[Rfam]
RNA sequence: UCGCUGCCACAACGGCUUCCUGACGUGGCGGUUCAAUUCUAUCGGAGCA
Numbered sequence: 001u002c003g004c005u006g007c008c009a010c011a012a013c014g015g016c017u018u019c020c021u022g023a024c025g026u027g028g029c030g031g032u033u034c035a036a037u038u039c040u041a042u043c044g045g046a047g048c049a
Stems, first nucleotide, its partner, number of pairs: 004031007013022002015048003019045002
Shown here is a 49-nucleotide RNA sequence from Cognatiyoonia sediminum, a member of the family "SAM/SAH riboswitch aptamer".
The match comes from Rfam's covariance-model search (64 bits).
NCBI's taxonomy places the organism under Bacteria, Pseudomonadati, Pseudomonadota, Alphaproteobacteria, Cognatiyoonia.
Pairs were carried over by alignment from the consensus structure, which is taken from published work.